[Rfam]
RNA sequence: GAGCUGUGAUGGUUUGUCUCGUUCGGUGUAUUGGCGAAUAACCAACAAAGCCAUGCCGACAAUCCUUACAUAUCACCACUCACAAUCUGAGCUC
Numbered sequence: 001g002a003g004c005u006g007u008g009a010u011g012g013u014u015u016g017u018c019u020c021g022u023u024c025g026g027u028g029u030a031u032u033g034g035c036g037a038a039u040a041a042c043c044a045a046c047a048a049a050g051c052c053a054u055g056c057c058g059a060c061a062a063u064c065c066u067u068a069c070a071u072a073u074c075a076c077c078a079c080u081c082a083c084a085a086u087c088u089g090a091g092c093u094c
Stems, first nucleotide, its partner, number of pairs: 001094004038054002

This 94-nucleotide sequence from Volvox carteri belongs to the Rfam family "Small nucleolar RNA Z43". It is annotated as a C/D-box small nucleolar RNA. The source organism's lineage runs through Eukaryota, core chlorophytes, Chlorophyceae, Chlamydomonadales and Volvox carteri. On this family, see Chen et al., Nucleic Acids Res 2003: "The high diversity of snoRNAs in plants: identification and comparative study of 120 snoRNA genes from Oryza sativa". Gene Ontology terms of the family: nucleolus and RNA processing.